[Rfam]
RNA sequence: CUAUUAGGUCAGGGGUUUCUAUCGGCCUCCAGCGGUUAAAACAGUUGUAGGCCGGCGGAAACUACUUGCUCUCAUAG
Numbered sequence: 001c002u003a004u005u006a007g008g009u010c011a012g013g014g015g016u017u018u019c020u021a022u023c024g025g026c027c028u029c030c031a032g033c034g035g036u037u038a039a040a041a042c043a044g045u046u047g048u049a050g051g052c053c054g055g056c057g058g059a060a061a062c063u064a065c066u067u068g069c070u071c072u073c074a075u076a077g
Stems, first nucleotide, its partner, number of pairs: 006072003010068004014063007022055007030047003
Notes
mir-2796 microRNA precursor family: a 77-nucleotide RNA sequence from Aphidius gifuensis. Its family is annotated with RISC complex and miRNA-mediated post-transcriptional gene silencing in the Gene Ontology. A search with the family's covariance model found it, with a score of 83 bits.